Shown here is a 478-nucleotide RNA sequence from Ophiocordyceps polyrhachis-furcata, a member of the family "RNase MRP". It is annotated as a ribozyme.
RNA sequence: CCCUCGGUCGACAAAUCGCUAUUCGAAGCUUACACACGGAGACACUCGCCCUCGGGCACAGCGUCUCACCAAUGCAAACAAGCUUUGGGAGAAAGUCCCCGGACGACUCCUUUUCGGAGCCUGCGGAAACGCGCCGCCAUAGAAGCAAUGCGGCUUACCUCGGCUCCUUGGCCCCUCGCAUCGACUCCCUGCCCUGCCCGUCGCUACAUCCGCUUCGCGCCAUCGCCCAUCCCCUCGUCGGCCCUCAUGGUCGUGCCUCUCCAGCCCUCUUGGAUGAAGAUACGAGUCCGUGCCGGGUGGCGUGCGUCCUGGGACUCUCCGGCGAGAGGGCCAGCGCUCGCGGAUGACGGGUAGACGCCUGGGGUUUAAGUCGGCGAGAGCGGUAUCGGGCGCCGAGGACUGUGGUCGAAAUUGAUAGGUAUGCGAUUGCCUGGCCUCAAAGCUGGGUUACCCGAUGGGGCUUAUUCUCGAGGCGAGG
Numbered sequence: 001c002c003c004u005c006g007g008u009c010g011a012c013a014a015a016u017c018g019c020u021a022u023u024c025g026a027a028g029c030u031u032a033c034a035c036a037c038g039g040a041g042a043c044a045c046u047c048g049c050c051c052u053c054g055g056g057c058a059c060a061g062c063g064u065c066u067c068a069c070c071a072a073u074g075c076a077a078a079c080a081a082g083c084u085u086u087g088g089g090a091g092a093a094a095g096u097c098c099c100c101g102g103a104c105g106a107c108u109c110c111u112u113u114u115c116g117g118a119g120c121c122u123g124c125g126g127a128a129a130c131g132c133g134c135c136g137c138c139a140u141a142g143a144a145g146c147a148a149u150g151c152g153g154c155u156u157a158c159c160u161c162g163g164c165u166c167c168u169u170g171g172c173c174c175c176u177c178g179c180a181u182c183g184a185c186u187c188c189c190u191g192c193c194c195u196g197c198c199c200g201u202c203g204c205u206a207c208a209u210c211c212g213c214u215u216c217g218c219g220c221c222a223u224c225g226c227c228c229a230u231c232c233c234c235u236c237g238u239c240g241g242c243c244c245u246c247a248u249g250g251u252c253g254u255g256c257c258u259c260u261c262c263a264g265c266c267c268u269c270u271u272g273g274a275u276g277a278a279g280a281u282a283c284g285a286g287u288c289c290g291u292g293c294c295g296g297g298u299g300g301c302g303u304g305c306g307u308c309c310u311g312g313g314a315c316u317c318u319c320c321g322g323c324g325a326g327a328g329g330g331c332c333a334g335c336g337c338u339c340g341c342g343g344a345u346g347a348c349g350g351g352u353a354g355a356c357g358c359c360u361g362g363g364g365u366u367u368a369a370g371u372c373g374g375c376g377a378g379a380g381c382g383g384u385a386u387c388g389g390g391c392g393c394c395g396a397g398g399a400c401u402g403u404g405g406u407c408g409a410a411a412u413u414g415a416u417a418g419g420u421a422u423g424c425g426a427u428u429g430c431c432u433g434g435c436c437u438c439a440a441a442g443c444u445g446g447g448u449u450a451c452c453c454g455a456u457g458g459g460g461c462u463u464a465u466u467c468u469c470g471a472g473g474c475g476a477g478g
Base pairs, nucleotide, nucleotide: 002478003477004476005475006474008471009470010469011468014428015427016426017425018424019423023089024087025086026085027084028083029082039067040066041065042064043063045061093463094462095461097460098459099458100457122133123132124131125130289304290303291302292301293300294299306400307399308398310395312394313393315390316389317388319383320382321381362372363371365369430447431446432445433444434443435442
The literature on the family includes a 1993 paper in FASEB J by Schmitt et al., "Secondary structure of RNase MRP RNA as predicted by phylogenetic comparison". From the family's description: RNase MRP is an enzymatically active ribonucleoprotein with two distinct roles in eukaryotes.